[Rfam]
RNA sequence: GGAACCCAUCGACCGAACCACUCACGGCAGGAGCGGGGGACCCAGGUAAGUCGCCGAGCCGGAGCGUCGUACGUCGUCCGACGUCCACGCCGCACCGGAACGGCUAGGGGUGAAGCCGUGCUCUCCCGAGGGCACGGCCGGGCACCUCCCCGCCCGAACCCGACAGCUCACCUCGCAGGCGGCGGAGAGGAAAA
Numbered sequence: 001g002g003a004a005c006c007c008a009u010c011g012a013c014c015g016a017a018c019c020a021c022u023c024a025c026g027g028c029a030g031g032a033g034c035g036g037g038g039g040a041c042c043c044a045g046g047u048a049a050g051u052c053g054c055c056g057a058g059c060c061g062g063a064g065c066g067u068c069g070u071a072c073g074u075c076g077u078c079c080g081a082c083g084u085c086c087a088c089g090c091c092g093c094a095c096c097g098g099a100a101c102g103g104c105u106a107g108g109g110g111u112g113a114a115g116c117c118g119u120g121c122u123c124u125c126c127c128g129a130g131g132g133c134a135c136g137g138c139c140g141g142g143c144a145c146c147u148c149c150c151c152g153c154c155c156g157a158a159c160c161c162g163a164c165a166g167c168u169c170a171c172c173u174c175g176c177a178g179g180c181g182g183c184g185g186a187g188a189g190g191a192a193a194a
Base pairs, nucleotide, nucleotide: 010181011180013179014178019031033176034175035174036173037172038171043107108161109160110159116137117136118135119134120133121132122131140155141154142153143152

Rfam assigns this 194-nucleotide sequence from Streptomyces mexicanus to the family "c-di-AMP riboswitch aptamer (ydaO/yuaA leader)". The organism belongs to Streptomyces, within Bacteria.